[Rfam]
RNA sequence: UUUUUAGUUUUCUAGGGUUCCGCGGCGCAUUUAGGCUGGCAGGUCCGAGGGAAAACGCACGGAGUAAUAAUUCCGUGUCAACACGGAGGGAUAAAAGCCCGGGAGGU
Numbered sequence: 001u002u003u004u005u006a007g008u009u010u011u012c013u014a015g016g017g018u019u020c021c022g023c024g025g026c027g028c029a030u031u032u033a034g035g036c037u038g039g040c041a042g043g044u045c046c047g048a049g050g051g052a053a054a055a056c057g058c059a060c061g062g063a064g065u066a067a068u069a070a071u072u073c074c075g076u077g078u079c080a081a082c083a084c085g086g087a088g089g090g091a092u093a094a095a096a097g098c099c100c101g102g103g104a105g106g107u
Base pairs, nucleotide, nucleotide: 007056008055009054010053011052012051015046016045020043021042022040023038024037025036026035057078058077059076060075061074062073063072064071082102084105088100089099090098
RNA: Guanidine-I riboswitch aptamer
Organism: Paenibacillus graminis